[Rfam]
The record is a 100-nucleotide RNA sequence from Pseudoflavonifractor capillosus, which matches "TPP riboswitch aptamer (THI element)" in Rfam. Pairs were carried over by alignment from the consensus structure, which is taken from published work. NCBI's taxonomy places the organism under Bacteria, Bacillati, Bacillota, Pseudoflavonifractor, Pseudoflavonifractor capillosus.

RNA sequence: AUAGAAUUCUAGGGGGACUCCGCGGAGUUGAGAAGGUAAAACCUGACCCUACGAACCUGAUCUGGCUCAUACCAGCGUAGGGAAGCAAUUCUGUACCGUU
Numbered sequence: 001a002u003a004g005a006a007u008u009c010u011a012g013g014g015g016g017a018c019u020c021c022g023c024g025g026a027g028u029u030g031a032g033a034a035g036g037u038a039a040a041a042c043c044u045g046a047c048c049c050u051a052c053g054a055a056c057c058u059g060a061u062c063u064g065g066c067u068c069a070u071a072c073c074a075g076c077g078u079a080g081g082g083a084a085g086c087a088a089u090u091c092u093g094u095a096c097c098g099u100u
Stems, first nucleotide, its partner, number of pairs: 007087001009085002011050004016044001017028004035043003056081004062075004

The match comes from Rfam's covariance-model search (71 bits).
Rfam links the family to the GO term thiamine pyrophosphate binding.